[Rfam]
RNA sequence: AUCAUCUUUUUCUUGGGGUAGUACUACUAUCCAAUGAAUGAGUAGUGAGGGCAGUACUGCUAAUGCCUACACAACAUGCCCACAUCAACCAGAGCUUUGCUUUACUUUGGUGCAAUUUUUGGACAA
Numbered sequence: 001a002u003c004a005u006c007u008u009u010u011u012c013u014u015g016g017g018g019u020a021g022u023a024c025u026a027c028u029a030u031c032c033a034a035u036g037a038a039u040g041a042g043u044a045g046u047g048a049g050g051g052c053a054g055u056a057c058u059g060c061u062a063a064u065g066c067c068u069a070c071a072c073a074a075c076a077u078g079c080c081c082a083c084a085u086c087a088a089c090c091a092g093a094g095c096u097u098u099g100c101u102u103u104a105c106u107u108u109g110g111u112g113c114a115a116u117u118u119u120u121g122g123a124c125a126a
Stems, first nucleotide, its partner, number of pairs: 006018004021060003026055003030051003038046002083112005091103005
RNA: U4atac minor spliceosomal RNA
Organism: Propithecus coquereli